Annotation
This 73-nucleotide RNA from Schizosaccharomyces pombe belongs to the Rfam family "tRNA". The source organism's lineage runs through Eukaryota, Ascomycota, Taphrinomycotina, Schizosaccharomycetaceae and Schizosaccharomyces. Rfam classes the family as a transfer RNA.
RNA sequence: GUCGCAAUGGUGUAGUUGGGAGCAUGACAGACUGAAGAUCUGUUGGUCAUCGGUUCGAUCCCGGUUUGUGACA
Numbered sequence: 001g002u003c004g005c006a007a008u009g010g011u012g013u014a015g016u017u018g019g020g021a022g023c024a025u026g027a028c029a030g031a032c033u034g035a036a037g038a039u040c041u042g043u044u045g046g047u048c049a050u051c052g053g054u055u056c057g058a059u060c061c062c063g064g065u066u067u068g069u070g071a072c073a
Stems, first nucleotide, its partner, number of pairs: 001072007010025004027043005049065005